The family of this 168-nucleotide RNA sequence is "Clostridiales-1 RNA". Pairs were carried over by alignment from the consensus structure, which is taken from published work.
[Rfam]
RNA sequence: UGAUACCCGGGUCAAAAGGUCUAAACCCACAUAAGCUCGCUCAUAGGUGGAUGAAAAACCUUGGAACCCGCCCCAAUAUGAGCAUAAAAGCAGGAUGAUAAUCCCACGAUAUGCUAAUAUUGGGUAGGUUUGUUGGAGUGCGUAGCACGUAACAAUCCGCAGGUAUCA
Numbered sequence: 001u002g003a004u005a006c007c008c009g010g011g012u013c014a015a016a017a018g019g020u021c022u023a024a025a026c027c028c029a030c031a032u033a034a035g036c037u038c039g040c041u042c043a044u045a046g047g048u049g050g051a052u053g054a055a056a057a058a059c060c061u062u063g064g065a066a067c068c069c070g071c072c073c074c075a076a077u078a079u080g081a082g083c084a085u086a087a088a089a090g091c092a093g094g095a096u097g098a099u100a101a102u103c104c105c106a107c108g109a110u111a112u113g114c115u116a117a118u119a120u121u122g123g124g125u126a127g128g129u130u131u132g133u134u135g136g137a138g139u140g141c142g143u144a145g146c147a148c149g150u151a152a153c154a155a156u157c158c159g160c161a162g163g164u165a166u167c168a
Stems, first nucleotide, its partner, number of pairs: 001168007011067002020054002027050004031044002034041002072124008082114004093104004127158002130155004138148004